[Rfam]
RNA sequence: UCAGGUGACAAACGACCCGAAGGUAGAUACCAGGGGAGUUUUGAUGA
Numbered sequence: 001u002c003a004g005g006u007g008a009c010a011a012a013c014g015a016c017c018c019g020a021a022g023g024u025a026g027a028u029a030c031c032a033g034g035g036g037a038g039u040u041u042u043g044a045u046g047a
Base pairs, nucleotide, nucleotide: 001047002046003045010041011040012039013038016035017034018033022031023030024029
RNA: flpD RNA
Organism: Methanococcus vannielii